The record is a 304-nucleotide RNA from Carnegiea gigantea, which matches "Plant signal recognition particle RNA" in Rfam.
By type it is a non-coding RNA gene.
Gene Ontology terms of the family: signal recognition particle, endoplasmic reticulum targeting and SRP-dependent cotranslational protein targeting to membrane, signal sequence recognition.
A search with the family's covariance model found it, with a score of 167 bits.
A reference for the family is Wild et al. (2002), "Towards the structure of the mammalian signal recognition particle", Curr Opin Struct Biol.
RNA sequence: GCUGAGCUGGGUAGCAUCAGCUUGUAACUCAAGCAGGGCAUCAAGGUGAUGGGACUUAGCUUAAUUUCGUAUGGUAGGACUACAAGUUAUGGUCUGCUGGCUUGCCCAUUCUAAUCUGGGCAUUCGGCUGAGUGGGUUAGGCGAAGGACCAGUCUAAACAGCCCCUGAAGAGGAGGGCACUGCGUCAGGCUGGCUUCACAAAGGAGCGAAUACCUCCCGCCCUCAGCAGUGGAGGGAUAACAAGUCGGGGCAUCCUCGGACUAUCAUUGCCCUGUGGGGGGAGCUCAAUUGGACCAUCACCUUU
Numbered sequence: 001g002c003u004g005a006g007c008u009g010g011g012u013a014g015c016a017u018c019a020g021c022u023u024g025u026a027a028c029u030c031a032a033g034c035a036g037g038g039c040a041u042c043a044a045g046g047u048g049a050u051g052g053g054a055c056u057u058a059g060c061u062u063a064a065u066u067u068c069g070u071a072u073g074g075u076a077g078g079a080c081u082a083c084a085a086g087u088u089a090u091g092g093u094c095u096g097c098u099g100g101c102u103u104g105c106c107c108a109u110u111c112u113a114a115u116c117u118g119g120g121c122a123u124u125c126g127g128c129u130g131a132g133u134g135g136g137u138u139a140g141g142c143g144a145a146g147g148a149c150c151a152g153u154c155u156a157a158a159c160a161g162c163c164c165c166u167g168a169a170g171a172g173g174a175g176g177g178c179a180c181u182g183c184g185u186c187a188g189g190c191u192g193g194c195u196u197c198a199c200a201a202a203g204g205a206g207c208g209a210a211u212a213c214c215u216c217c218c219g220c221c222c223u224c225a226g227c228a229g230u231g232g233a234g235g236g237a238u239a240a241c242a243a244g245u246c247g248g249g250g251c252a253u254c255c256u257c258g259g260a261c262u263a264u265c266a267u268u269g270c271c272c273u274g275u276g277g278g279g280g281g282a283g284c285u286c287a288a289u290u291g292g293a294c295c296a297u298c299a300c301c302u303u304u
Base pairs, nucleotide, nucleotide: 001039002038003037004023005022006021007020008019009018010017028036029035043303044302045301046300047299048298049297050296051295052294055291057288059286060283061282062281065278067277068276069275070274071273073271074270075269076268077262078261080259081258086254089253090252091251093250094249097248098247099246100245101244102243103242104241106236107235109234110233111232112231113230116226117225118224119223120222123219126163127162128161129160130159133156134155135154136153137152138151140149142147165170172217173216174215175214176213181210183208184207185206191200192199